A member of the RNA family "bip internal ribosome entry site (IRES)" from Lipotes vexillifer, 267 nucleotides long.
Rfam describes the family as follows. This family represents the bip internal ribosome entry site (IRES). BiP protein expression has been found to be significantly enhanced by the heat shock response due to IRES-dependent translation. It is thought that this translational mechanism is essential for the survival of cells under stress.
The family's consensus secondary structure was predicted with PFOLD.
The organism belongs to Lipotes, within Eukaryota.
RNA sequence: CGCUGACUGAGCUCUCAUAGGCGCGUUGAGUUGGGGUUUUCGUGCGUGUGAGAGGUAGGUGCCGCGGCCUGCAGUUCCGUACCUGCUCUUCGCCUUGUAUGCUGCUCCUCCUGACUCCGGGCUGUGUCGUCCUCAGCUCGGGCACCUCGGUGCGCUCUCGUGUUGCGGCCUGUGGCUGGUUUGCCUGCGAAGCCCUGCCUGCCUGCUGAGUGAGUGGACGACGGUGCCGGCAAGAUGAAGCCCUCCCUGGUGGCUGCGGUGCUGCUG
Numbered sequence: 001c002g003c004u005g006a007c008u009g010a011g012c013u014c015u016c017a018u019a020g021g022c023g024c025g026u027u028g029a030g031u032u033g034g035g036g037u038u039u040u041c042g043u044g045c046g047u048g049u050g051a052g053a054g055g056u057a058g059g060u061g062c063c064g065c066g067g068c069c070u071g072c073a074g075u076u077c078c079g080u081a082c083c084u085g086c087u088c089u090u091c092g093c094c095u096u097g098u099a100u101g102c103u104g105c106u107c108c109u110c111c112u113g114a115c116u117c118c119g120g121g122c123u124g125u126g127u128c129g130u131c132c133u134c135a136g137c138u139c140g141g142g143c144a145c146c147u148c149g150g151u152g153c154g155c156u157c158u159c160g161u162g163u164u165g166c167g168g169c170c171u172g173u174g175g176c177u178g179g180u181u182u183g184c185c186u187g188c189g190a191a192g193c194c195c196u197g198c199c200u201g202c203c204u205g206c207u208g209a210g211u212g213a214g215u216g217g218a219c220g221a222c223g224g225u226g227c228c229g230g231c232a233a234g235a236u237g238a239a240g241c242c243c244u245c246c247c248u249g250g251u252g253g254c255u256g257c258g259g260u261g262c263u264g265c266u267g
Base pairs, nucleotide, nucleotide: 004256005255007253008252009251016162017161018160020158031120032119033118034117035116036115037114059107061105062104064102065101066100166178167177168176169175170174